[Rfam]
About this RNA:
T-box leader: a 251-nucleotide sequence from Rummeliibacillus sp. TYF005. Uncharged tRNA acts as the effector for transcription antitermination of genes in the T-box leader family. By type it is a cis-regulatory leader. The family's consensus secondary structure is taken from published work. Gene Ontology term of the family: tRNA binding. It scores 108 bits against the family's covariance model.
RNA sequence: GCAAAGGCUAUGAUAAGAAGUAGUAACAAUUAUAGAGACUUUCAGAAAGUUGCCGGUUGAUGAGAGGCGCAUGUCGAUUGGUUGUGAAUUCCUCUUGGAGCUGCGUACCGAACAGAAAUCUAAGUAGGCUACGACGGUAAGCAUCCGUAAUCUAGUGCAACAGUAUCGUCUAUAUGACCGUACUUUUUGAGGUAAGUAAUGUGAAUUACUUGCAAAUUAAAGGUGGUAACACGAGUAUAAUCGUCCUUUUG
Numbered sequence: 001g002c003a004a005a006g007g008c009u010a011u012g013a014u015a016a017g018a019a020g021u022a023g024u025a026a027c028a029a030u031u032a033u034a035g036a037g038a039c040u041u042u043c044a045g046a047a048a049g050u051u052g053c054c055g056g057u058u059g060a061u062g063a064g065a066g067g068c069g070c071a072u073g074u075c076g077a078u079u080g081g082u083u084g085u086g087a088a089u090u091c092c093u094c095u096u097g098g099a100g101c102u103g104c105g106u107a108c109c110g111a112a113c114a115g116a117a118a119u120c121u122a123a124g125u126a127g128g129c130u131a132c133g134a135c136g137g138u139a140a141g142c143a144u145c146c147g148u149a150a151u152c153u154a155g156u157g158c159a160a161c162a163g164u165a166u167c168g169u170c171u172a173u174a175u176g177a178c179c180g181u182a183c184u185u186u187u188u189g190a191g192g193u194a195a196g197u198a199a200u201g202u203g204a205a206u207u208a209c210u211u212g213c214a215a216a217u218u219a220a221a222g223g224u225g226g227u228a229a230c231a232c233g234a235g236u237a238u239a240a241u242c243g244u245c246c247u248u249u250u251g
Stems, first nucleotide, its partner, number of pairs: 007101002015096004026085006038074002051069004104133004108128002135147003192213007220248004231244004